[Rfam]
RNA: Vault RNA
Organism: Prolemur simus
RNA sequence: GGGCUGGCUUUACCUCAGCGGCUCCUUCGGUAAUCUCUUGGCGGGAGCGAGGCCGUCCGAGACCCGCGGGCGCUCUCCAGCCGUUUA
Numbered sequence: 001g002g003g004c005u006g007g008c009u010u011u012a013c014c015u016c017a018g019c020g021g022c023u024c025c026u027u028c029g030g031u032a033a034u035c036u037c038u039u040g041g042c043g044g045g046a047g048c049g050a051g052g053c054c055g056u057c058c059g060a061g062a063c064c065c066g067c068g069g070g071c072g073c074u075c076u077c078c079a080g081c082c083g084u085u086u087a
Stems, first nucleotide, its partner, number of pairs: 002082006014070003018067004026061005
Dot-bracket structure: .((((((......(((.((((....(((((..........................)))))..)))))))......)))))).....